[Rfam]
Nucleotides: 393
Stems, first nucleotide, its partner, number of pairs: 001389010011378001012335007020035006040376003044373005049216004062212005067081005082096001083094004097207002102205002104201003119147002121143009155173006174196001175194002179190004220292004230283006262276001264274001266272001299318008
Number, partner (000 for none) and nucleotide at each position: 001389c002388c003387a004386g005385u006384c007383g008382g009381c010380c011378g012335g013334a014333c015332g016331g017330c018329c019000g020035c021034u022033c023032c024031c025030g026000c027000u028000u029000g030025c031024g032023g033022g034021g035020g036000a037000g038000g039000a040376a041375a042374g043000u044373c045372c046371g047370g048369g049216c050215u051214c052213c053000a054000c055000g056000g057000a058000a059000a060000c061000a062212c063211g064210g065209u066208g067081c068080c069079g070078g071077a072000u073000a074000a075000c076000g077071u078070c079069c080068g081067g082096c083094g084093g085092g086091g087000g088000c089000g090000a091086c092085c093084c094083c095000a096082g097207g098206g099000a100000a101000a102205g103204c104201g105200c106199c107000a108000c109000a110000g111000a112000g113000a114000u115000c116000g117000a118000a119147c120146c121143g122142c123141c124140g125139c126138g127137g128136g129135c130000u131000u132000a133000c134000g135129g136128c137127c138126u139125g140124c141123g142122g143121u144000a145000a146120g147119g148000g149000u150000g151000a152000a153000a154000a155173g156172g157171u158170g159169c160168g161000g162000u163000a164000a165000g166000a167000g168160c169159g170158c171157a172156c173155c174196g175194c176193g177000g178000a179190c180189c181188c182187g183000g184000c185000a186000a187182c188181g189180g190179g191000g192000a193176c194175g195000g196174c197000a198000u199106g200105g201104c202000a203000a204103g205102c206098c207097c208066c209065a210064c211063c212062g213052g214051g215050a216049g217000c218000a219000a220292a221291a222290c223289c224000g225000a226000a227000u228000a229000g230283g231282g232281a233280c234279g235278a236000u237000g238000c239000u240000c241000c242000c243000c244000g245000c246000g247000c248000a249000a250000g251000c252000g253000g254000g255000g256000a257000g258000g259000g260000g261000c262276a263000u264274g265000u266272u267000u268000u269000c270000g271000c272266g273000c274264c275000u276262u277000g278235u279234c280233g281232u282231c283230c284000g285000g286000g287000u288000u289223g290222g291221u292220u293000g294000c295000u296000c297000g298000a299318g300317g301316c302315g303314c304313g305312c306311a307000g308000c309000a310000a311306u312305g313304c314303g315302c316301g317300u318299c319000c320000c321000a322000g323000a324000g325000g326000a327000a328000u329018g330017g331016c332015c333014g334013u335012c336000a337000c338000g339000u340000c341000g342000g343000g344000g345000g346000a347000g348000c349000a350000a351000u352000u353000c354000u355000c356000c357000g358000g359000c360000c361000a362000u363000c364000c365000a366000g367000a368000a369048c370047c371046c372045g373044g374042c375041u376040u377000a378011c379000a380010g381009g382008c383007c384006g385005g386004c387003u388002g389001g390000c391000a392000a393000u
A member of the RNA family "Bacterial RNase P class A" from Allobosea sp. Root381, 393 nucleotides long. Rfam links the family to the GO terms dimeric ribonuclease P complex, tRNA processing and ribonuclease P activity. Rfam describes the family as follows. Ribonuclease P (RNase P) is a ubiquitous endoribonuclease, found in archaea, bacteria and eukarya as well as chloroplasts and mitochondria. Lineage of the source: Bacteria > Pseudomonadati > Pseudomonadota > Alphaproteobacteria > Allobosea.